[Rfam]
RNA sequence: UAACGACAAAGGCAAACCCGGCGAAAGCCGGCGACGCAAAGCUAUGGGUCUAAGGGCUGUAUGCCUAUGACUGCCAGGCCGCCGAA
Number, nucleotide and partner (000 for none) at each position: 001u000002a000003a000004c000005g000006a000007c000008a000009a000010a000011g000012g037013c036014a000015a000016a000017c000018c031019c030020g029021g028022c027023g000024a000025a000026a000027g022028c021029c020030g019031g018032c000033g000034a000035c000036g013037c012038a000039a000040a000041g079042c078043u077044a000045u076046g075047g074048g071049u070050c069051u000052a000053a000054g000055g065056g064057c063058u000059g000060u000061a000062u000063g057064c056065c055066u000067a000068u000069g050070a049071c048072u000073g000074c047075c046076a045077g043078g042079c041080c000081g000082c000083c000084g000085a000086a000
Shown here is an 86-nucleotide sequence from Bellilinea caldifistulae, a member of the family "c-di-GMP-I riboswitch aptamer". The match comes from Rfam's covariance-model search (79 bits). Its family is annotated with cyclic-di-GMP binding in the Gene Ontology.